[Rfam]
RNA sequence: CCUAACUAAAACAAUGAAAGCCCUACCUCUCUUUCAUCCUUGCGGCUCCGAUGACCGCGCCAGUGUGAAUCAGUAUUCUUACAGUCUG
Numbered sequence: 001c002c003u004a005a006c007u008a009a010a011a012c013a014a015u016g017a018a019a020g021c022c023c024u025a026c027c028u029c030u031c032u033u034u035c036a037u038c039c040u041u042g043c044g045g046c047u048c049c050g051a052u053g054a055c056c057g058c059g060c061c062a063g064u065g066u067g068a069a070u071c072a073g074u075a076u077u078c079u080u081a082c083a084g085u086c087u088g
Stems, first nucleotide, its partner, number of pairs: 034068003039063002041059005047053001
BsrC: an 88-nucleotide sequence from Paenibacillus solanacearum. The organism belongs to Paenibacillus, within Bacteria. It scores 86 bits against the family's covariance model. It is annotated as a small RNA.